[Rfam]
RNA sequence: GAGCCAGACUCUAGUGUGCUUGAGUCUGCAGUGACCCUAUGCAUUCCUACAGUGCUUGCCAGAACAGGGUUGGAAUGGGUUUAGGUCUUGCCAUGCUCUAUUCAGAGCAAGGACAUAGGAAAUAACAAAGCAAA
Numbered sequence: 001g002a003g004c005c006a007g008a009c010u011c012u013a014g015u016g017u018g019c020u021u022g023a024g025u026c027u028g029c030a031g032u033g034a035c036c037c038u039a040u041g042c043a044u045u046c047c048u049a050c051a052g053u054g055c056u057u058g059c060c061a062g063a064a065c066a067g068g069g070u071u072g073g074a075a076u077g078g079g080u081u082u083a084g085g086u087c088u089u090g091c092c093a094u095g096c097u098c099u100a101u102u103c104a105g106a107g108c109a110a111g112g113a114c115a116u117a118g119g120a121a122a123u124a125a126c127a128a129a130g131c132a133a134a
Stems, first nucleotide, its partner, number of pairs: 003059002006056002017043003022037001024035003071127002075123001086112006094104002

This 134-nucleotide RNA from Spermophilus dauricus belongs to the Rfam family "Small nucleolar RNA SNORA9". Rfam's curators write: ACA9 is a member of the H/ACA class of snoRNA that guide the sites of modification of uridines to pseudouridines. The family is grouped with related families in Rfam's "SNORA9 clan". Rfam links the family to the GO terms nucleolus and RNA processing. The family's consensus secondary structure was predicted with PFOLD.